Rfam assigns this 123-nucleotide RNA sequence from Pelotomaculum propionicicum to the family "Molybdenum/Tungsten riboswitch aptamer (Moco RNA motif)". The match comes from Rfam's covariance-model search (72 bits).

RNA sequence: GUAUUAAAAAAUCUCCGAGCCUGGAUGACCUUAGCCUUUCGAGGUAUGGACGCCAGGCCGUUAGGGUGCGGCUGGGAAACUGCCGCGCCUCCCAUUGUGGAAAGGGGAAGUAUAAAAUGUACA
Number, nucleotide and partner (000 for none) at each position: 001g000002u000003a000004u116005u000006a000007a000008a000009a000010a000011a000012u108013c107014u106015c105016c104017g000018a000019g058020c057021c056022u055023g054024g053025a000026u052027g051028a000029c049030c048031u000032u000033a000034g045035c044036c043037u042038u000039u000040c000041g000042a037043g036044g035045u034046a000047u000048g030049g029050a000051c027052g026053c024054c023055a022056g021057g020058c019059c000060g000061u000062u000063a000064g090065g089066g088067u087068g086069c085070g084071g083072c000073u082074g081075g080076g000077a000078a000079a000080c075081u074082g073083c071084c070085g069086c068087g067088c066089c065090u064091c100092c099093c000094a000095u000096u000097g000098u000099g092100g091101a000102a000103a000104g016105g015106g014107g013108a012109a000110g000111u000112a000113u000114a000115a000116a004117a000118u000119g000120u000121a000122c000123a000